[Rfam]
Nucleotides: 054
Stems, first nucleotide, its partner, number of pairs: 001054003007050002010047002013045002016041005022035005
Number, partner (000 for none) and nucleotide at each position: 001054a002053a003052a004000g005000u006000a007050g008049c009000a010047u011046a012000u013045g014044c015000a016041a017040c018039a019038g020037c021000u022035a023034u024033g025032g026031a027000u028000u029000g030000g031026u032025u033024u034023a035022u036000u037020g038019c039018u040017g041016u042000c043000u044014g045013u046011u047010a048000u049008g050007c051000c052003u053002u054001u